RNA sequence: UCGGCGGGCGACCGCUCGCCGGACCUGACACCGGUACCUGACACGGCCGGUGCAG
Number, nucleotide and partner (000 for none) at each position: 001u022002c021003g020004g019005c018006g017007g016008g015009c014010g000011a000012c000013c000014g009015c008016u007017c006018g005019c004020c003021g002022g001023a000024c000025c055026u054027g053028a000029c052030a051031c050032c049033g048034g047035u046036a000037c000038c000039u000040g000041a000042c000043a000044c000045g000046g035047c034048c033049g032050g031051u030052g029053c027054a026055g025
RNA: L17-Actino-Proteobacteria ribosomal protein leader